[Rfam]
Overview:
This 92-nucleotide sequence from Humitalea rosea belongs to the Rfam family "Bacterial small signal recognition particle RNA". Rfam describes the family as follows. The signal recognition particle (SRP) is a universally conserved ribonucleoprotein involved in the co-translational targeting of proteins to membranes. The match comes from Rfam's covariance-model search (63 bits). A reference for the family is Rosenblad et al. (2003), "SRPDB: Signal Recognition Particle Database", Nucleic Acids Res.
RNA sequence: AGGCCGGCGGUGGACGGGCGCCUCGCCAACCUGGUCAGGUCCGGAAGGAAGCAGCCACAACGAGUUCCGCCCGGGUCAUUUGCCGGUCUUCC
Numbered sequence: 001a002g003g004c005c006g007g008c009g010g011u012g013g014a015c016g017g018g019c020g021c022c023u024c025g026c027c028a029a030c031c032u033g034g035u036c037a038g039g040u041c042c043g044g045a046a047g048g049a050a051g052c053a054g055c056c057a058c059a060a061c062g063a064g065u066u067c068c069g070c071c072c073g074g075g076u077c078a079u080u081u082g083c084c085g086g087u088c089u090u091c092c
Stems, first nucleotide, its partner, number of pairs: 004086005009080004015073006022064004032057004040049003
About this RNA:
Taxonomically the source falls in Humitalea (Bacteria, Pseudomonadati, Alphaproteobacteria, Roseomonadaceae).